RNA: Plastid-psbA-1 3UTR RNA
RNA sequence: CUAAAGUUUCAUCUCUUAUGGAUAAUGCUUUUCUUCUAACAUAUAGCAGUACUCAAAGGAAGGAAAGCUAGAAAUAUUCAAUAUCUUAUUCCAGCAAGAUAUUUGGUAUUUCUUAAUU
Numbered sequence: 001c002u003a004a005a006g007u008u009u010c011a012u013c014u015c016u017u018a019u020g021g022a023u024a025a026u027g028c029u030u031u032u033c034u035u036c037u038a039a040c041a042u043a044u045a046g047c048a049g050u051a052c053u054c055a056a057a058g059g060a061a062g063g064a065a066a067g068c069u070a071g072a073a074a075u076a077u078u079c080a081a082u083a084u085c086u087u088a089u090u091c092c093a094g095c096a097a098g099a100u101a102u103u104u105g106g107u108a109u110u111u112c113u114u115a116a117u118u
Stems, first nucleotide, its partner, number of pairs: 008022005065118002070113008080103002083100005
Dot-bracket structure: .......(((((.....)))))..........................................((...((((((((..((.(((((........))))).))..))))))))...))